Rfam assigns this 187-nucleotide RNA sequence from Desulfobacula toluolica to the family "Group II catalytic intron D1-D4-3". The match comes from Rfam's covariance-model search (93 bits). Pairs were carried over by alignment from the consensus structure.
[Rfam]
RNA sequence: GUCCCGGUGACGGUACUCCGGAAGGCAGUGGCUUCGCCGAGGCGGAGUGGCACAAAAGUACGGGGUGACGUACAGAAAUCGAGUUAGGCGUGCAUUUGCGGGACGAGCCUGCAACACAAGGUAAAGUCCUCUAUCCAUUAUAGGCAAUGUCCGUAUACUCGGCACCCACGUAUUGAAAGACGUGUGU
Number, nucleotide and partner (000 for none) at each position: 001g016002u015003c000004c013005c012006g011007g000008u000009g000010a000011c006012g005013g004014u000015a002016c001017u000018c000019c000020g000021g000022a000023a000024g000025g000026c000027a000028g000029u000030g000031g000032c000033u000034u000035c000036g000037c000038c000039g000040a000041g000042g000043c000044g000045g187046a000047g185048u184049g183050g000051c000052a000053c179054a000055a000056a000057a174058g173059u172060a171061c170062g169063g167064g166065g165066u164067g163068a000069c000070g000071u000072a000073c000074a000075g000076a000077a000078a000079u162080c161081g160082a159083g158084u000085u000086a000087g000088g154089c153090g152091u000092g150093c149094a148095u000096u147097u146098g145099c144100g000101g129102g128103a127104c126105g000106a000107g122108c121109c120110u119111g000112c000113a000114a000115c000116a000117c000118a000119a110120g109121g108122u107123a000124a000125a000126g104127u103128c102129c101130u000131c000132u000133a000134u000135c000136c000137a000138u000139u000140a000141u000142a000143g000144g099145c098146a097147a096148u094149g093150u092151c000152c090153g089154u088155a000156u000157a000158c083159u082160c081161g080162g079163c067164a066165c065166c064167c063168a000169c062170g061171u060172a059173u058174u057175g000176a000177a000178a000179g053180a000181c000182g000183u049184g048185u047186g000187u045